[Rfam]
This 255-nucleotide RNA from Aneurinibacillus danicus belongs to the Rfam family "BsrG".

RNA sequence: UCUAAUAGAAUAAAAUUUUUCCAGGUUGGUCAGCGCAUCCCCGAAAGAAAAGGGGUGGUACUAAUGACGGUAUUUGAAGCGUUAAUGCUUGCAGCAACUUUUGCAAGCUUAGUUGUGGUGAUUCUGUCAUUCAACCAUAAAAAAUAAUCCACCUUUGAGCUUGCCGGCUAGUGGUGGAUUACUUUCCUCAUUACGCUGAUCCUCCAUUGAGGAAAUCGCCUAUCGCAUGACCGUUUGGUGUAACCGACACCAGAC
Numbered sequence: 001u002c003u004a005a006u007a008g009a010a011u012a013a014a015a016u017u018u019u020u021c022c023a024g025g026u027u028g029g030u031c032a033g034c035g036c037a038u039c040c041c042c043g044a045a046a047g048a049a050a051a052g053g054g055g056u057g058g059u060a061c062u063a064a065u066g067a068c069g070g071u072a073u074u075u076g077a078a079g080c081g082u083u084a085a086u087g088c089u090u091g092c093a094g095c096a097a098c099u100u101u102u103g104c105a106a107g108c109u110u111a112g113u114u115g116u117g118g119u120g121a122u123u124c125u126g127u128c129a130u131u132c133a134a135c136c137a138u139a140a141a142a143a144a145u146a147a148u149c150c151a152c153c154u155u156u157g158a159g160c161u162u163g164c165c166g167g168c169u170a171g172u173g174g175u176g177g178a179u180u181a182c183u184u185u186c187c188u189c190a191u192u193a194c195g196c197u198g199a200u201c202c203u204c205c206a207u208u209g210a211g212g213a214a215a216u217c218g219c220c221u222a223u224c225g226c227a228u229g230a231c232c233g234u235u236u237g238g239u240g241u242a243a244c245c246g247a248c249a250c251c252a253g254a255c
Base pairs, nucleotide, nucleotide: 001227003225005223007221008220011215015200016199017198019159020158021157023155024154025153028149029148030147036057037056039055040054041053042052066128067127068126069125070124072122081092102120103119104118170188171187203213204212205211233255234254235253236252237251238250239249240248241247
By type it is a small RNA. bsrE, bsrG and bsrH pair through intermolecular interactions with antisense sRNAs. The source organism's lineage runs through Bacteria, Bacillati, Bacillota, Paenibacillaceae and Aneurinibacillus. The match comes from Rfam's covariance-model search (76 bits). Gene Ontology terms of the family: toxin activity and autolysis.